[Rfam]
Nucleotides: 324
Base pairs, nucleotide, nucleotide: 040057041056042055043054044053045052046051061205062204063203064202065201072198073197074196077193078192087183088182089181092179093178097113098112099111100110101109114165115164116163117162118161119160120159206221207220208219209218211232212231213230216228217227288304289303290302291301294321295320296319297318298317299316
Number, partner (000 for none) and nucleotide at each position: 001000g002000g003000g004000c005000u006000u007000u008000g009000c010000a011000u012000g013000u014000c015000a016000c017000g018000g019000c020000c021000g022000a023000g024000c025000g026000c027000c028000u029000a030000u031000a032000u033000a034000u035000g036000g037000g038000g039000u040057g041056c042055c043054g044053g045052u046051c047000g048000c049000a050000a051046g052045g053044c054043c055042g056041g057040c058000u059000a060000u061205g062204g063203c064202g065201a066000u067000a068000c069000a070000g071000g072198g073197c074196c075000u076000c077193a078192c079000g080000g081000a082000a083000u084000a085000a086000a087183c088182g089181u090000a091000u092179c093178g094000g095000a096000c097113c098112c099111g100110g101109g102000g103000g104000c105000a106000g107000u108000g109101c110100c111099c112098g113097g114165c115164g116163c117162c118161u119160c120159c121000a122000c123000c124000a125000g126000u127000u128000c129000a130000g131000a132000u133000c134000a135000c136000c137000g138000g139000c140000c141000u142000u143000c144000g145000g146000g147000c148000c149000g150000g151000u152000g153000c154000u155000c156000c157000a158000u159120g160119g161118g162117g163116g164115c165114g166000a167000g168000c169000c170000a171000g172000g173000a174000u175000c176000g177000a178093c179092g180000u181089g182088c183087g184000u185000g186000g187000u188000a189000a190000a191000g192078g193077u194000u195000u196074g197073g198072u199000c200000u201065u202064c203063g204062c205061c206221c207220g208219g209218c210000a211232u212231g213230a214000u215000a216228c217227c218209g219208c220207c221206g222000u223000u224000a225000u226000c227217g228216g229000g230213u231212c232211a233000c234000u235000c236000a237000a238000a239000c240000a241000g242000g243000u244000g245000c246000g247000a248000a249000c250000g251000a252000c253000a254000a255000c256000c257000g258000u259000g260000u261000c262000g263000c264000c265000c266000u267000c268000g269000c270000u271000g272000c273000c274000u275000a276000a277000c278000u279000a280000g281000g282000c283000a284000a285000g286000c287000g288304c289303g290302g291301u292000c293000c294321g295320g296319g297318g298317g299316g300000c301291a302290c303289c304288g305000g306000g307000c308000a309000a310000c311000a312000g313000a314000a315000g316299c317298c318297c319296c320295c321294c322000a323000c324000u